[Rfam]
RNA sequence: UUGUACAAACCCGUAGAUCCGAACUUGUGGCUGGAGGAAAUAUAAUCGCAAGCUCGUACCUACAGGUCUGUAUCAA
Numbered sequence: 001u002u003g004u005a006c007a008a009a010c011c012c013g014u015a016g017a018u019c020c021g022a023a024c025u026u027g028u029g030g031c032u033g034g035a036g037g038a039a040a041u042a043u044a045a046u047c048g049c050a051a052g053c054u055c056g057u058a059c060c061u062a063c064a065g066g067u068c069u070g071u072a073u074c075a076a
Stems, first nucleotide, its partner, number of pairs: 003073005010066002015061002018058001020056003024052006

A member of the RNA family "mir-10 microRNA precursor family" from Dreissena polymorpha, 76 nucleotides long.
Gene Ontology terms of the family: miRNA-mediated post-transcriptional gene silencing and RISC complex.
The match comes from Rfam's covariance-model search (56 bits).
NCBI's taxonomy places the organism under Eukaryota, Metazoa, Dreissenoidea, Dreissenidae, Dreissena.